RNA sequence: UAAGACUUUAAGGGGCGGCCGCGGGCCUGGCUCAUGCGGCGGCGCUGGAGACCACGAGGCGACCGGGAGCGGCUGGGCUCGGCUGCACGCGCCGCCAGGCCGGAGCCGCCAGUCGGAGCCCCCGGCCCAGCGUGGCCCGCCUCCCUCUCGGCGUCCACCUGUCCGGGUGCUGCCAGCAGGCAUGACCGACCCACCAGGGCGCAGCCGCCCGGCGCUUCGCAGGCCGCUAGGAUGAAGAAGAAGACCGGAGCCGCUCGACCCGGAGCUGAGGAAUUGACCCGGAGCGAGGAGUUGACCCUGAGUGAGGAGGCGACAGCGAGCCGAAGAGGCGACCCAGAGUGAGGAGGCGACUUCCGGAGCGAAGAGAUG
Numbered sequence: 001u002a003a004g005a006c007u008u009u010a011a012g013g014g015g016c017g018g019c020c021g022c023g024g025g026c027c028u029g030g031c032u033c034a035u036g037c038g039g040c041g042g043c044g045c046u047g048g049a050g051a052c053c054a055c056g057a058g059g060c061g062a063c064c065g066g067g068a069g070c071g072g073c074u075g076g077g078c079u080c081g082g083c084u085g086c087a088c089g090c091g092c093c094g095c096c097a098g099g100c101c102g103g104a105g106c107c108g109c110c111a112g113u114c115g116g117a118g119c120c121c122c123c124g125g126c127c128c129a130g131c132g133u134g135g136c137c138c139g140c141c142u143c144c145c146u147c148u149c150g151g152c153g154u155c156c157a158c159c160u161g162u163c164c165g166g167g168u169g170c171u172g173c174c175a176g177c178a179g180g181c182a183u184g185a186c187c188g189a190c191c192c193a194c195c196a197g198g199g200c201g202c203a204g205c206c207g208c209c210c211g212g213c214g215c216u217u218c219g220c221a222g223g224c225c226g227c228u229a230g231g232a233u234g235a236a237g238a239a240g241a242a243g244a245c246c247g248g249a250g251c252c253g254c255u256c257g258a259c260c261c262g263g264a265g266c267u268g269a270g271g272a273a274u275u276g277a278c279c280c281g282g283a284g285c286g287a288g289g290a291g292u293u294g295a296c297c298c299u300g301a302g303u304g305a306g307g308a309g310g311c312g313a314c315a316g317c318g319a320g321c322c323g324a325a326g327a328g329g330c331g332a333c334c335c336a337g338a339g340u341g342a343g344g345a346g347g348c349g350a351c352u353u354c355c356g357g358a359g360c361g362a363a364g365a366g367a368u369g
Stems, first nucleotide, its partner, number of pairs: 024101008041093005046054003063082003068079003138349007160182004165177001198217001199215004204210001252268001253266004
RNA: Bag-1 internal ribosome entry site (IRES)